[Rfam]
RNA sequence: GCACUCAUUGGGGCUUGGUCCUCGCCACGUGGUGCUGACCUGCCCUCAGAGUGAGAGAAAUGGGACUGGUUUGGGGGUGUCCUGUCCAAGUGGACACAGGAGACCACGGUUUCCAGCACAACA
Numbered sequence: 001g002c003a004c005u006c007a008u009u010g011g012g013g014c015u016u017g018g019u020c021c022u023c024g025c026c027a028c029g030u031g032g033u034g035c036u037g038a039c040c041u042g043c044c045c046u047c048a049g050a051g052u053g054a055g056a057g058a059a060a061u062g063g064g065a066c067u068g069g070u071u072u073g074g075g076g077g078u079g080u081c082c083u084g085u086c087c088a089a090g091u092g093g094a095c096a097c098a099g100g101a102g103a104c105c106a107c108g109g110u111u112u113c114c115a116g117c118a119c120a121a122c123a
Base pairs, nucleotide, nucleotide: 003052004051005050006049012044013043014042017040018039019038020037025032026031063119066116067115068114069113071109072108073107076105077104078103080101081100082099083098084095085094086093087092
Description
A member of the RNA family "Small Cajal body specific RNA 23" from Suricata suricatta, 123 nucleotides long. The base pairs follow the family's consensus structure, which was predicted with RNAfold. scaRNAs are a specific class of small nuclear RNAs which localise to the Cajal bodies and guide the modification of RNA polymerase II transcribed spliceosomal RNAs U1, U2, U4, U5 and U12. ACA11 belongs to the H/ACA box class of guide RNAs as it has the predicted hairpin-hinge-hairpin-tail structure,the conserved H/ACA-box motifs and is found associated with GAR1. H/ACA snRNAs are predicted to guide the modification of uridines to pseudouridines in substrate RNAs however, no target RNA has been identified for scaRNA ACA11. Gene Ontology terms of the family: Cajal body, nucleolus and RNA processing. It is annotated as a small Cajal body RNA. The literature on the family includes a 2002 paper in EMBO J by Darzacq et al., "Cajal body-specific small nuclear RNAs: a novel class of 2'-O-methylation and pseudouridylation guide RNAs".